This 148-nucleotide sequence from Enterococcus sp. NBRC 3427 belongs to the Rfam family "glmS glucosamine-6-phosphate activated ribozyme aptamer". By type it is a riboswitch. Rfam describes the family as follows. This entry contains a glucosamine-6-phosphate activated ribozyme that is found in the mRNA for GlmS. GlmS is an enzyme that uses fructose-6-phosphate and glutamine to generate glucosamine-6-phosphate.
[Rfam]
RNA sequence: CCUUUUAGGAUAGCGCCUGGUCUGUGCAAACAGAUGACGAGGAGAGGGUUUAUCGAAAGAUUCGGCGGAUGACCCUAGGGACUGCACUCUACAGAAGAUCCACAAAAAGUAUCUGCAAAGAUAAAACAAAAGGAUUUUCCUGCAGCUG
Numbered sequence: 001c002c003u004u005u006u007a008g009g010a011u012a013g014c015g016c017c018u019g020g021u022c023u024g025u026g027c028a029a030a031c032a033g034a035u036g037a038c039g040a041g042g043a044g045a046g047g048g049u050u051u052a053u054c055g056a057a058a059g060a061u062u063c064g065g066c067g068g069a070u071g072a073c074c075c076u077a078g079g080g081a082c083u084g085c086a087c088u089c090u091a092c093a094g095a096a097g098a099u100c101c102a103c104a105a106a107a108a109g110u111a112u113c114u115g116c117a118a119a120g121a122u123a124a125a126a127c128a129a130a131a132g133g134a135u136u137u138u139c140c141u142g143c144a145g146c147u148g
Stems, first nucleotide, its partner, number of pairs: 020035006045076005053065004077090004095138007110123005